A member of the RNA family "Bacillus sRNA ncr1015" from Brevibacillus centrosporus, 118 nucleotides long. The family's consensus secondary structure is taken from published work.
RNA sequence: AUGUAAGAUGGGAUAAAUAUUGUAAUUUUAACAAAACAGUCGUAUUUCGAUUAUAGCAUCGUGACUGUUUUUACGCUAUAGAAAAGAACCUGGUAAAGCUGCCCAGGUUCUUCUUUGA
Numbered sequence: 001a002u003g004u005a006a007g008a009u010g011g012g013a014u015a016a017a018u019a020u021u022g023u024a025a026u027u028u029u030a031a032c033a034a035a036a037c038a039g040u041c042g043u044a045u046u047u048c049g050a051u052u053a054u055a056g057c058a059u060c061g062u063g064a065c066u067g068u069u070u071u072u073a074c075g076c077u078a079u080a081g082a083a084a085a086g087a088a089c090c091u092g093g094u095a096a097a098g099c100u101g102c103c104c105a106g107g108u109u110c111u112u113c114u115u116u117g118a
Stems, first nucleotide, its partner, number of pairs: 034072003037067001041061002082114001084112010
Dot-bracket structure: .................................((((...((.................)).....)..))).........(.((((((((((.........)))))))))).)....